[Rfam]
RNA: Small nucleolar RNA snoR136
Organism: Lactuca sativa
RNA sequence: GUGGCUUUAUAUACUGUGAAUGAGGAUUUGCUACAAUUUAGUAUUGGCAAAUUUUAAUGGAGUGAAGCCUAGAAAAAAUGUUCCCCUCGCUAUCCGGUGCAACCAUCAAUGUAGCAUUUGGACGUUGGGAAACAACAUUU
Numbered sequence: 001g002u003g004g005c006u007u008u009a010u011a012u013a014c015u016g017u018g019a020a021u022g023a024g025g026a027u028u029u030g031c032u033a034c035a036a037u038u039u040a041g042u043a044u045u046g047g048c049a050a051a052u053u054u055u056a057a058u059g060g061a062g063u064g065a066a067g068c069c070u071a072g073a074a075a076a077a078a079u080g081u082u083c084c085c086c087u088c089g090c091u092a093u094c095c096g097g098u099g100c101a102a103c104c105a106u107c108a109a110u111g112u113a114g115c116a117u118u119u120g121g122a123c124g125u126u127g128g129g130a131a132a133c134a135a136c137a138u139u140u
Stems, first nucleotide, its partner, number of pairs: 002071001003069003008064003012060001017056001019054002026052008080133003084129003088124002093122005102112002
Dot-bracket structure: .((((..(((.(....(.((.....((((((((...........)))))))))).)...).)))..))).)........(((.(((.((...(((((....((.......)).....)))))))..))).))).......